Shown here is a 206-nucleotide RNA from Leptobrachium leishanense, a member of the family "Small nucleolar RNA SNORA74". On this family, see Ganot et al., Genes Dev 1997: "The family of box ACA small nucleolar RNAs is defined by an evolutionarily conserved secondary structure and ubiquitous sequence elements essential for RNA accumulation". Taxonomically the source falls in Leptobrachium (Eukaryota, Dipnotetrapodomorpha, Batrachia, Pelobatoidea). By type it is an H/ACA-box small nucleolar RNA. Pairs were carried over by alignment from the consensus structure, which was predicted with PFOLD.
RNA sequence: CCCAGUGGUUAGUCAGCUAUCCAGUGCCAAUCCGUGCCUGUGAUAGUGUUACAUUGCUGGGAGAUCAAGACAAUGCACCCAAUGCUUGUGUCCCACUGUUACUGUUCUGGUGACAUGUAGCACUUGCAACUAAGCAUUGUUGUACUUCCUCGAGUGCGCCAAACAUCUACCAUGUUUGUUUUGAAGCUAGUCUGGAAGCACACAGA
Numbered sequence: 001c002c003c004a005g006u007g008g009u010u011a012g013u014c015a016g017c018u019a020u021c022c023a024g025u026g027c028c029a030a031u032c033c034g035u036g037c038c039u040g041u042g043a044u045a046g047u048g049u050u051a052c053a054u055u056g057c058u059g060g061g062a063g064a065u066c067a068a069g070a071c072a073a074u075g076c077a078c079c080c081a082a083u084g085c086u087u088g089u090g091u092c093c094c095a096c097u098g099u100u101a102c103u104g105u106u107c108u109g110g111u112g113a114c115a116u117g118u119a120g121c122a123c124u125u126g127c128a129a130c131u132a133a134g135c136a137u138u139g140u141u142g143u144a145c146u147u148c149c150u151c152g153a154g155u156g157c158g159c160c161a162a163a164c165a166u167c168u169a170c171c172a173u174g175u176u177u178g179u180u181u182u183g184a185a186g187c188u189a190g191u192c193u194g195g196a197a198g199c200a201c202a203c204a205g206a
Stems, first nucleotide, its partner, number of pairs: 001061009012052002016047006022040003026037002070140007084130001086129004090123002093120001095118001097115007142201002145198005158187002163182001165180001167178001169176001